Background:
The record is a 361-nucleotide RNA sequence from Ostreibacterium oceani, which matches "Bacterial RNase P class A" in Rfam. The base pairs follow the family's consensus structure, which is taken from published work. A search with the family's covariance model found it, with a score of 328 bits. It is annotated as a ribozyme. Ribonuclease P (RNase P) is a ubiquitous endoribonuclease, found in archaea, bacteria and eukarya as well as chloroplasts and mitochondria.

RNA sequence: UGAGUCGGUCGGAUAGUCGCUGCAAAAGCAGAGGAAAGUCCGGACUCCAUCGGGUAGCGUGCCGGAUAACGUCCGGGCAGCGAGAGCUGACAGCCAGUGCAACAGAGAGCAGACCGCCAUGCCUAUGGCGUGGUAAGGGUGAAAGGGUGCGGUAAGAGCGCACCGCGUCAAUGGCAACAUUUGAUGGCAAGGUAAACCUCACGCGGAGCAAGACCAAAUAGGAAUGCAACAAGCUAGCUUUGCUACGCUUGACGCUGUGACCCACAGUGCAUUCGGGUAGGUCGCUAGAGUGUAUUGGCAACAAUACACCCAGAUAAAUGGCUAUCAACUACAGAAUCCGGCUUAUAGACCGACUCAUUUU
Numbered sequence: 001u002g003a004g005u006c007g008g009u010c011g012g013a014u015a016g017u018c019g020c021u022g023c024a025a026a027a028g029c030a031g032a033g034g035a036a037a038g039u040c041c042g043g044a045c046u047c048c049a050u051c052g053g054g055u056a057g058c059g060u061g062c063c064g065g066a067u068a069a070c071g072u073c074c075g076g077g078c079a080g081c082g083a084g085a086g087c088u089g090a091c092a093g094c095c096a097g098u099g100c101a102a103c104a105g106a107g108a109g110c111a112g113a114c115c116g117c118c119a120u121g122c123c124u125a126u127g128g129c130g131u132g133g134u135a136a137g138g139g140u141g142a143a144a145g146g147g148u149g150c151g152g153u154a155a156g157a158g159c160g161c162a163c164c165g166c167g168u169c170a171a172u173g174g175c176a177a178c179a180u181u182u183g184a185u186g187g188c189a190a191g192g193u194a195a196a197c198c199u200c201a202c203g204c205g206g207a208g209c210a211a212g213a214c215c216a217a218a219u220a221g222g223a224a225u226g227c228a229a230c231a232a233g234c235u236a237g238c239u240u241u242g243c244u245a246c247g248c249u250u251g252a253c254g255c256u257g258u259g260a261c262c263c264a265c266a267g268u269g270c271a272u273u274c275g276g277g278u279a280g281g282u283c284g285c286u287a288g289a290g291u292g293u294a295u296u297g298g299c300a301a302c303a304a305u306a307c308a309c310c311c312a313g314a315u316a317a318a319u320g321g322c323u324a325u326c327a328a329c330u331a332c333a334g335a336a337u338c339c340g341g342c343u344u345a346u347a348g349a350c351c352g353a354c355u356c357a358u359u360u361u
Base pairs, nucleotide, nucleotide: 001357002356003355004354005353006352007351008350009349010348011346012326013325014324015323016322017321018320020031021030022029023028036344037343038342040341041340042339043338044337045208046207047206048205052263053262054261055260057204058203059202060201061200062076063075064074065073066072077091078089079088080087081086092199093198097197098196099193100192114138115137116134117133118132119131120130121129122128123127146164147163148162149161150160151159165188166186167185168184169183170182171180172179173178212283213282214281215280222274223273224272225271226270227269254268255267256266257265258264290309291308292307293306294305295304296303297302